The family of this 75-nucleotide RNA from Pogona vitticeps is "Small nucleolar RNA SNORD26". NCBI's taxonomy places the organism under Eukaryota, Sauropsida, Episquamata, Acrodonta, Pogona. The family's consensus secondary structure was predicted with PFOLD. The family is grouped with related families in Rfam's "SNORD26 clan". It scores 68 bits against the family's covariance model.
Nucleotides: 075
Stems, first nucleotide, its partner, number of pairs: 001074004
Number, partner (000 for none) and nucleotide at each position: 001074c002073u003072a004071c005000g006000g007000a008000g009000a010000u011000g012000a013000g014000a015000u016000u017000g018000a019000c020000g021000a022000a023000c024000u025000c026000u027000c028000u029000c030000u031000u032000u033000c034000u035000g036000a037000g038000g039000c040000a041000u042000c043000a044000g045000u046000g047000g048000a049000g050000a051000a052000a053000a054000c055000c056000u057000u058000u059000a060000c061000c062000a063000g064000a065000u066000u067000c068000u069000g070000a071004g072003u073002g074001g075000c